[Rfam]
RNA: Bacterial small subunit ribosomal RNA, nucleotides 880 to 1462
Organism: Helicobacter sp. 11S03491-1
RNA sequence: AGACGGGGACCCGCACAAGCGGUGGAGCAUGUGGUUUAAUUCGAAGAUACGCGAAGAACCUUACCUGGGCUUGACAUUGAUAGUAUCUGCUAGAAAUAGUGGAGUGUCUGGCUUGCCAGACCUUGAAAACAGGUGCUGCACGGCUGUCGUCAGCUCGUGUCGUGAGAUGUUGGGUUAAGUCCCGCAACGAGCGCAACCCUCGUCCUUAGUUGCUAGCAGUUCGGCUGAGCACUCUAAGGAGACUGCCUUCGUAAGGAGGAGGAAGGUGAGGACGACGUCAAGUCAUCAUGGCCCUUACGCCCAGGGCUACACACGUGCUACAAUGGGAUGCACAAAGAGAUGCAAUGCCGUGAGGCGGAGCAAAUCUCAAAAACAUCUCUCAGUUCGGAUUGUAGUCUGCAACUCGACUACAUGAAGCUGGAAUCGCUAGUAAUCGUGAAUCAGCAAUGUCACGGUGAAUACGUUCCCGGGUCUUGUACUCACCGCCCGUCACACCAUGGGAGUUGUAUUCGCCUUAAGCCGGGAUGCUAAAUUGGCUACCGUCCACGGCGGAUGCAGCGACUGGGGUGAAGUCGUAACAAGG
Numbered sequence: 001a002g003a004c005g006g007g008g009a010c011c012c013g014c015a016c017a018a019g020c021g022g023u024g025g026a027g028c029a030u031g032u033g034g035u036u037u038a039a040u041u042c043g044a045a046g047a048u049a050c051g052c053g054a055a056g057a058a059c060c061u062u063a064c065c066u067g068g069g070c071u072u073g074a075c076a077u078u079g080a081u082a083g084u085a086u087c088u089g090c091u092a093g094a095a096a097u098a099g100u101g102g103a104g105u106g107u108c109u110g111g112c113u114u115g116c117c118a119g120a121c122c123u124u125g126a127a128a129a130c131a132g133g134u135g136c137u138g139c140a141c142g143g144c145u146g147u148c149g150u151c152a153g154c155u156c157g158u159g160u161c162g163u164g165a166g167a168u169g170u171u172g173g174g175u176u177a178a179g180u181c182c183c184g185c186a187a188c189g190a191g192c193g194c195a196a197c198c199c200u201c202g203u204c205c206u207u208a209g210u211u212g213c214u215a216g217c218a219g220u221u222c223g224g225c226u227g228a229g230c231a232c233u234c235u236a237a238g239g240a241g242a243c244u245g246c247c248u249u250c251g252u253a254a255g256g257a258g259g260a261g262g263a264a265g266g267u268g269a270g271g272a273c274g275a276c277g278u279c280a281a282g283u284c285a286u287c288a289u290g291g292c293c294c295u296u297a298c299g300c301c302c303a304g305g306g307c308u309a310c311a312c313a314c315g316u317g318c319u320a321c322a323a324u325g326g327g328a329u330g331c332a333c334a335a336a337g338a339g340a341u342g343c344a345a346u347g348c349c350g351u352g353a354g355g356c357g358g359a360g361c362a363a364a365u366c367u368c369a370a371a372a373a374c375a376u377c378u379c380u381c382a383g384u385u386c387g388g389a390u391u392g393u394a395g396u397c398u399g400c401a402a403c404u405c406g407a408c409u410a411c412a413u414g415a416a417g418c419u420g421g422a423a424u425c426g427c428u429a430g431u432a433a434u435c436g437u438g439a440a441u442c443a444g445c446a447a448u449g450u451c452a453c454g455g456u457g458a459a460u461a462c463g464u465u466c467c468c469g470g471g472u473c474u475u476g477u478a479c480u481c482a483c484c485g486c487c488c489g490u491c492a493c494a495c496c497a498u499g500g501g502a503g504u505u506g507u508a509u510u511c512g513c514c515u516u517a518a519g520c521c522g523g524g525a526u527g528c529u530a531a532a533u534u535g536g537c538u539a540c541c542g543u544c545c546a547c548g549g550c551g552g553a554u555g556c557a558g559c560g561a562c563u564g565g566g567g568u569g570a571a572g573u574c575g576u577a578a579c580a581a582g583g
Base pairs, nucleotide, nucleotide: 001480002479003477004476005475007474008473009472010471011470012469013468015464016463019427020426021425022424023423024321026319027318028317029316030315031314032313033312034310035309040055041054042053043052064305065304066303067302068301069300070299077129078128082123083122086103087102088101089100090099091098092097106121107120108119109118110117111116132294133293135292136291137290138289142287143283144282145281146279148277149276153192154191155190156189157188158187159168160167161166171184172183173182174181198271199270200269201268203240204239205238206237207236208235209234213229214228217227218226219225243262244261246259247258248257249256250255325379326378327377328376329375330374337368338367339366342361343360347356348355349354386417391412392411393410394409395408396407397406433456434455435454436453437452438451439450483582485579488575489574493569494568495567496566498564499563500562503559504558505557506556507555508554509553510552511551512550513549514548519544521542522541523540527537528536529535